[Rfam]
RNA sequence: GAAUGAAGGAAGCAUGGUAAUGUGCAAAAAAAUGAUUUGGGUCUCUAGGCCUGCCCUCUCUGAUACCUUUCAGCUUCGAUUUGGGGCAUGGUUCUGCAACAAAACG
Numbered sequence: 001g002a003a004u005g006a007a008g009g010a011a012g013c014a015u016g017g018u019a020a021u022g023u024g025c026a027a028a029a030a031a032a033u034g035a036u037u038u039g040g041g042u043c044u045c046u047a048g049g050c051c052u053g054c055c056c057u058c059u060c061u062g063a064u065a066c067c068u069u070u071c072a073g074c075u076u077c078g079a080u081u082u083g084g085g086g087c088a089u090g091g092u093u094c095u096g097c098a099a100c101a102a103a104a105c106g
Stems, first nucleotide, its partner, number of pairs: 012025004039089001041087003049080001051078001053074002

Rfam assigns this 106-nucleotide RNA from Rhododendron simsii to the family "Small nucleolar RNA snoR100". The literature on the family includes a 2002 paper in Curr Biol by Marker et al., "Experimental RNomics: identification of 140 candidates for small non-messenger RNAs in the plant Arabidopsis thaliana". The family's RNA type in Rfam is H/ACA-box small nucleolar RNA. Its family is annotated with RNA processing and nucleolus in the Gene Ontology. A search with the family's covariance model found it, with a score of 74 bits. The source organism's lineage runs through Eukaryota, Streptophyta, Embryophyta, eudicotyledons and Rhododendron.